A member of the RNA family "Small nucleolar RNA U3" from Cynoglossus semilaevis, 205 nucleotides long. It is annotated as a C/D-box small nucleolar RNA.
RNA sequence: AAGACUAUACUUUCAGGGAUCAUUUCUAUAGUUUCUUAUUGUGGAAAUGUGUUUCUAAAGAGUGUGGUCUCACUAACCAUGAUGAUGAGUUGGGACAUUCUCUUCUGAGCAGGAAAUAGACAGAGAGAAAUGAUGUGUUCAUGGACUCUGUGAUUGAUGACUGUUCUCUACUUCUCAAUGAGGAAGAGCAUGUGUUCAGAGUGGU
Dot-bracket structure: .((...(.(((...((((.....))))..))).)....))........(((.((......)))))..........(((((..............((((.(((((((..(((........(((..(((..((((.....))))...))))))..........)))..((...........))))))))).)))).......)))))
Numbered sequence: 001a002a003g004a005c006u007a008u009a010c011u012u013u014c015a016g017g018g019a020u021c022a023u024u025u026c027u028a029u030a031g032u033u034u035c036u037u038a039u040u041g042u043g044g045a046a047a048u049g050u051g052u053u054u055c056u057a058a059a060g061a062g063u064g065u066g067g068u069c070u071c072a073c074u075a076a077c078c079a080u081g082a083u084g085a086u087g088a089g090u091u092g093g094g095a096c097a098u099u100c101u102c103u104u105c106u107g108a109g110c111a112g113g114a115a116a117u118a119g120a121c122a123g124a125g126a127g128a129a130a131u132g133a134u135g136u137g138u139u140c141a142u143g144g145a146c147u148c149u150g151u152g153a154u155u156g157a158u159g160a161c162u163g164u165u166c167u168c169u170a171c172u173u174c175u176c177a178a179u180g181a182g183g184a185a186g187a188g189c190a191u192g193u194g195u196u197c198a199g200a201g202u203g204g205u
Stems, first nucleotide, its partner, number of pairs: 002040002007034001009032003015027004049065003053062002076205005095193004100188007109164003120151003125148003130142004167181002
Rfam 15.1 lists 19,072 matches to the family in 1,215 species. Small nucleolar RNAs (snoRNAs) are involved in the processing and modification of rRNA in the nucleolus. There are two main classes of snoRNAs: the box C/D class, and the box H/ACA class. U3 snoRNA is a member of the box C/D class. Indeed, the box C/D element is a subset of the six short sequence elements found in all U3 snoRNAs, namely boxes A, A', B, C, C', and D. The U3 snoRNA secondary structure is characterised by a small 5' domain (with boxes A and A'), and a larger 3' domain (with boxes B, C, C', and D), the two domains being linked by a single-stranded hinge. Boxes B and C form the B/C motif, which appears to be exclusive to U3 snoRNAs, and boxes C' and D form the C'/D motif. The latter is functionally similar to the C/D motifs found in other snoRNAs. The 5' domain and the hinge region act as a pre-rRNA-binding domain. The 3' domain has conserved protein-binding sites. Both the box B/C and box C'/D motifs are sufficient for nuclear retention of U3 snoRNA. The box C'/D motif is also necessary for nucleolar localisation, stability and hyper-methylation of U3 snoRNA. Both box B/C and C'/D motifs are involved in specific protein interactions and are necessary for the rRNA processing functions of U3 snoRNA.